A member of the RNA family "ZMP/ZTP riboswitch aptamer (pfl RNA motif)" from Streptomyces corynorhini, 86 nucleotides long. Its family is annotated with regulation of purine nucleotide biosynthetic process and one-carbon metabolic process in the Gene Ontology. Taxonomically the source falls in Streptomyces (Bacteria, Bacillati, Actinomycetes, Streptomycetaceae). Pairs were carried over by alignment from the consensus structure, which is taken from published work. It scores 47 bits against the family's covariance model.
RNA sequence: CCGCGUGAACGUGACUGGCGCUGAGGUGGAGCACCACCGGGGAGCGGGCUGACGAGGUGUCGAUGCCGGGCGCCUGGGCGAGUGUC
Numbered sequence: 001c002c003g004c005g006u007g008a009a010c011g012u013g014a015c016u017g018g019c020g021c022u023g024a025g026g027u028g029g030a031g032c033a034c035c036a037c038c039g040g041g042g043a044g045c046g047g048g049c050u051g052a053c054g055a056g057g058u059g060u061c062g063a064u065g066c067c068g069g070g071c072g073c074c075u076g077g078g079c080g081a082g083u084g085u086c
Base pairs, nucleotide, nucleotide: 003053007049010046011045012044015041016040017074018073019072020071021070026037027036028035029034064080065079066078067077